[Rfam]
RNA sequence: AUAUAAGUAAAAAAUUACAUUUUAGGUUCAUUCAUUUAAUGAUGUAUGUGGUCUAUAAUAAAGACUAUGUGCAUCAUUAAAUGAAUGAACCUAAAAUACAGUUUUUUGCUUAUAU
Numbered sequence: 001a002u003a004u005a006a007g008u009a010a011a012a013a014a015u016u017a018c019a020u021u022u023u024a025g026g027u028u029c030a031u032u033c034a035u036u037u038a039a040u041g042a043u044g045u046a047u048g049u050g051g052u053c054u055a056u057a058a059u060a061a062a063g064a065c066u067a068u069g070u071g072c073a074u075c076a077u078u079a080a081a082u083g084a085a086u087g088a089a090c091c092u093a094a095a096a097u098a099c100a101g102u103u104u105u106u107u108g109c110u111u112a113u114a115u
Stems, first nucleotide, its partner, number of pairs: 002114006009107005015101002019097007027089018049067004